[Rfam]
RNA sequence: GCGGGUCUUCAGGGCGGGGCGAAAUUCCCCACCGGCGGUAGGCGGCGCAAGCCGCGAGCCCGCGAGCGCCCGGUGCGGUCGAAAGAUCGCAGCGGGGUCAGCAGACCCGGUCAGAUGCCGGGGCCGACGGUCACAGUCCGGAUGGAAGAAGAUCCGC
Numbered sequence: 001g002c003g004g005g006u007c008u009u010c011a012g013g014g015c016g017g018g019g020c021g022a023a024a025u026u027c028c029c030c031a032c033c034g035g036c037g038g039u040a041g042g043c044g045g046c047g048c049a050a051g052c053c054g055c056g057a058g059c060c061c062g063c064g065a066g067c068g069c070c071c072g073g074u075g076c077g078g079u080c081g082a083a084a085g086a087u088c089g090c091a092g093c094g095g096g097g098u099c100a101g102c103a104g105a106c107c108c109g110g111u112c113a114g115a116u117g118c119c120g121g122g123g124c125c126g127a128c129g130g131u132c133a134c135a136g137u138c139c140g141g142a143u144g145g146a147a148g149a150a151g152a153u154c155c156g157c
Stems, first nucleotide, its partner, number of pairs: 003155008017029003031137002033126002035063004058124002066102002106122005128140003

The record is a 157-nucleotide RNA from Ramlibacter humi, which matches "FMN riboswitch aptamer (RFN element)" in Rfam. Rfam links the family to the GO term FMN binding. The organism belongs to Ramlibacter, within Bacteria. The RFN element is a highly conserved domain that is found frequently in the 5'-untranslated regions of prokaryotic mRNAs that encode for flavin mononucleotide (FMN) biosynthesis and transport proteins. It scores 96 bits against the family's covariance model.